[Rfam]
c-di-AMP riboswitch aptamer (ydaO/yuaA leader): a 145-nucleotide RNA from Micromonospora yangpuensis. The organism belongs to Micromonospora, within Bacteria.
RNA sequence: CGCGUCGACCCGCUCAAUCGUCGUACGACGAACCGGGGACCCACAGCACCACUGGGGUGAAUCCGCGCAGCCACGGCUCGCGGUAGGGCGAAUUCUUCCCGCCCGAAUCCGUCAGCUAACCCGGUAGGCGGCACCGGAAGGAGUU
Numbered sequence: 001c002g003c004g005u006c007g008a009c010c011c012g013c014u015c016a017a018u019c020g021u022c023g024u025a026c027g028a029c030g031a032a033c034c035g036g037g038g039a040c041c042c043a044c045a046g047c048a049c050c051a052c053u054g055g056g057g058u059g060a061a062u063c064c065g066c067g068c069a070g071c072c073a074c075g076g077c078u079c080g081c082g083g084u085a086g087g088g089c090g091a092a093u094u095c096u097u098c099c100c101g102c103c104c105g106a107a108u109c110c111g112u113c114a115g116c117u118a119a120c121c122c123g124g125u126a127g128g129c130g131g132c133a134c135c136g137g138a139a140g141g142a143g144u145u
Base pairs, nucleotide, nucleotide: 011130012129013128014127018031019030020029032125033124034123035122036121037120042054043053055110056109057108063083064082065081066080086104087103088102089101
Description: The match comes from Rfam's covariance-model search (88 bits).